[Rfam]
RNA sequence: UUCCGAAUGCGGGACUGGCGGAUAGUGGACUUACCACGUGGACUGCAUUUCGGGUGUAUAGCCGACCGCCUGGGCAAGAGAU
Numbered sequence: 001u002u003c004c005g006a007a008u009g010c011g012g013g014a015c016u017g018g019c020g021g022a023u024a025g026u027g028g029a030c031u032u033a034c035c036a037c038g039u040g041g042a043c044u045g046c047a048u049u050u051c052g053g054g055u056g057u058a059u060a061g062c063c064g065a066c067c068g069c070c071u072g073g074g075c076a077a078g079a080g081a082u
Base pairs, nucleotide, nucleotide: 003052005050006049007048008047009046010045011044012043015040017070018069019068020067021066025037026036027035028034059077061075062074063073

This 82-nucleotide RNA from Sporomusa ovata belongs to the Rfam family "ZMP/ZTP riboswitch aptamer (pfl RNA motif)". The match comes from Rfam's covariance-model search (62 bits). The family's consensus secondary structure is taken from published work.